[Rfam]
RNA sequence: AGCAAAGGCAUCAUUGAGCGCAGCGUUGAUGAGCCAGCCGCCGUGCCUCCCCUGUCGGCUGCGGCGGCUCACCAGCGCUGCACUCAAUUACGCCUUUG
Numbered sequence: 001a002g003c004a005a006a007g008g009c010a011u012c013a014u015u016g017a018g019c020g021c022a023g024c025g026u027u028g029a030u031g032a033g034c035c036a037g038c039c040g041c042c043g044u045g046c047c048u049c050c051c052c053u054g055u056c057g058g059c060u061g062c063g064g065c066g067g068c069u070c071a072c073c074a075g076c077g078c079u080g081c082a083c084u085c086a087a088u089u090a091c092g093c094c095u096u097u098g
Base pairs, nucleotide, nucleotide: 006095007094008093009092011090013088014087015086016085017084018083020081021080022079023078024077025076026075027074028073030071031070032069033068034067035066
Record summary: MIR397 microRNA precursor family: a 98-nucleotide RNA from Zea mays. The match comes from Rfam's covariance-model search (68 bits). The family has 7 seed sequences and 496 matches in Rfam 15.1. Lineage of the source: Eukaryota > Embryophyta > Tracheophyta > Mesangiospermae > Zea. A reference for the family is Mica et al. (2009), "High throughput approaches reveal splicing of primary microRNA transcripts and tissue specific expression of mature microRNAs in Vitis vinifera", BMC Genomics.